The record is a 99-nucleotide sequence from Ceratopteris richardii, which matches "Small nucleolar RNA Z157/R69/R10" in Rfam. Its family is annotated with nucleolus and RNA processing in the Gene Ontology. The organism belongs to Ceratopteris, within Eukaryota. The family is grouped with related families in Rfam's "SNORD52 clan". The base pairs follow the family's consensus structure, which was predicted with PFOLD.
RNA sequence: AGUGUUGCUAUGACGAGAUUAUUUUCGGACUAGAGUUUCUGAGCUCGAGCUUCGUGCUUGCGUUCUGAAGAAAUUACCCUUGGCUGUCCGAGCAACGCA
Numbered sequence: 001a002g003u004g005u006u007g008c009u010a011u012g013a014c015g016a017g018a019u020u021a022u023u024u025u026c027g028g029a030c031u032a033g034a035g036u037u038u039c040u041g042a043g044c045u046c047g048a049g050c051u052u053c054g055u056g057c058u059u060g061c062g063u064u065c066u067g068a069a070g071a072a073a074u075u076a077c078c079c080u081u082g083g084c085u086g087u088c089c090g091a092g093c094a095a096c097g098c099a
Stems, first nucleotide, its partner, number of pairs: 002098007036070004043063002046060003